[Rfam]
RNA sequence: GCAGGUGUGCCAGACGAUCGCUGCUGGAAUGCGCUUAGCAUUCCGGGGGAGGAAAGUCCGAACUCCGCAGGACAGUGUGCCGGAUAACGUCCGGGAUUCAGGCGUCAAGGCCUGAAGACGGCCAGUGCCACAGAGAAGAUACCGCCCUUGUUCGCAGGGGUAAGGGUGAAAAGGUGCGGUAAGAGCGCACCGCUCCGGCUGUAAAGUCGGGGGCAGGGUAAACCCCACACGGAGCAAGACCAAAUAGGGAGGAAAUCCGCCGCCAGGCCCAGGCUGCGGUUGCGUGCCGGUCCGGUGCGCUAAGGCGGGUCGCCAUUUAUCCAAUAAGUGGAGCCGUAACCUCCGGGUAGGUCGCUCGAGCGCGUCAGUAAUGCCGCGCCUAGAGGAAUGAUCGUCGCGAGUCUCCGGACUCGAACAAAAUUCGGCUUAUCGGCAGCUUGCAAAC
Numbered sequence: 001g002c003a004g005g006u007g008u009g010c011c012a013g014a015c016g017a018u019c020g021c022u023g024c025u026g027g028a029a030u031g032c033g034c035u036u037a038g039c040a041u042u043c044c045g046g047g048g049g050a051g052g053a054a055a056g057u058c059c060g061a062a063c064u065c066c067g068c069a070g071g072a073c074a075g076u077g078u079g080c081c082g083g084a085u086a087a088c089g090u091c092c093g094g095g096a097u098u099c100a101g102g103c104g105u106c107a108a109g110g111c112c113u114g115a116a117g118a119c120g121g122c123c124a125g126u127g128c129c130a131c132a133g134a135g136a137a138g139a140u141a142c143c144g145c146c147c148u149u150g151u152u153c154g155c156a157g158g159g160g161u162a163a164g165g166g167u168g169a170a171a172a173g174g175u176g177c178g179g180u181a182a183g184a185g186c187g188c189a190c191c192g193c194u195c196c197g198g199c200u201g202u203a204a205a206g207u208c209g210g211g212g213g214c215a216g217g218g219u220a221a222a223c224c225c226c227a228c229a230c231g232g233a234g235c236a237a238g239a240c241c242a243a244a245u246a247g248g249g250a251g252g253a254a255a256u257c258c259g260c261c262g263c264c265a266g267g268c269c270c271a272g273g274c275u276g277c278g279g280u281u282g283c284g285u286g287c288c289g290g291u292c293c294g295g296u297g298c299g300c301u302a303a304g305g306c307g308g309g310u311c312g313c314c315a316u317u318u319a320u321c322c323a324a325u326a327a328g329u330g331g332a333g334c335c336g337u338a339a340c341c342u343c344c345g346g347g348u349a350g351g352u353c354g355c356u357c358g359a360g361c362g363c364g365u366c367a368g369u370a371a372u373g374c375c376g377c378g379c380c381u382a383g384a385g386g387a388a389u390g391a392u393c394g395u396c397g398c399g400a401g402u403c404u405c406c407g408g409a410c411u412c413g414a415a416c417a418a419a420a421u422u423c424g425g426c427u428u429a430u431c432g433g434c435a436g437c438u439u440g441c442a443a444a445c
Base pairs, nucleotide, nucleotide: 001441002440003439004438005437006436008435009434010433011432012430013396014395015394016393017392018391019390021049022048024046025045026044027043028042029041030040031039054428055427056426058425059424060423061422062421063234064233065232066231075230076229077228078227079226080094081093082092083091084090095119097116098115099114100113101112102111103110120225121224125223126222127219128218129217142165143164144161145160146159147158148157149156150155173191174190175189176188177187178186192214193212194211195210196209197208198207199206200205238353239352240351241350248344249343250342251341252340280333360379361378362377363376364375366373367372
RNA: Bacterial RNase P class A